[Rfam]
This 221-nucleotide RNA sequence from Pseudenhygromyxa sp. WMMC2535 belongs to the Rfam family "Group II catalytic intron D1-D4-6".
The base pairs follow the family's consensus structure.

Nucleotides: 221
Base pairs, nucleotide, nucleotide: 010035011034012033013032014031017029018028021189023187024186037089038088039087040086043084045082046081047079048078049074050073051072052071056067057066058065059064108215109213111212112211113210114209115208116207131206132205133204134203135202136201137164138163139162142158143157144156145155169200170199171198172197173196174195175194176193178191179190
Number, partner (000 for none) and nucleotide at each position: 001000a002000g003000a004000g005000u006000c007000c008000a009000a010035c011034a012033c013032c014031g015000a016000a017029g018028g019000a020000g021189u022000a023187g024186c025000g026000a027000c028018c029017c030000a031014c032013g033012g034011u035010g036000a037089c038088c039087c040086c041000g042000a043084g044000c045082c046081a047079u048078g049074c050073g051072u052071c053000g054000a055000c056067g057066a058065u059064c060000g061000c062000g063000a064059g065058g066057u067056c068000u069000c070000a071052g072051g073050c074049g075000a076000a077000g078048c079047g080000u081046u082045g083000a084043c085000a086040g087039g088038g089037g090000c091000a092000c093000g094000u095000g096000c097000g098000g099000g100000c101000a102000g103000g104000g105000u106000a107000u108215u109213g110000a111212g112211c113210c114209g115208c116207g117000a118000a119000a120000u121000c122000a123000g124000g125000u126000c127000a128000a129000c130000u131206c132205g133204g134203g135202g136201u137164g138163c139162c140000g141000a142158c143157g144156c145155u146000g147000u148000u149000a150000a151000g152000c153000a154000a155145a156144g157143c158142g159000g160000a161000a162139g163138g164137c165000c166000a167000c168000a169200c170199g171198c172197c173196c174195a175194g176193c177000g178191c179190c180000g181000u182000c183000a184000g185000c186024g187023c188000g189021a190179g191178g192000a193176g194175u195174u196173g197172g198171g199170u200169g201136a202135c203134c204133c205132c206131g207116c208115g209114c210113g211112g212111u213109c214000g215108g216000a217000g218000a219000c220000c221000c

Rfam links the family to the GO term Group II intron splicing.
Rfam describes the family as follows. Group II introns are found in rRNA, tRNA and mRNA of organelles in fungi, plants and protists, and also in mRNA in bacteria.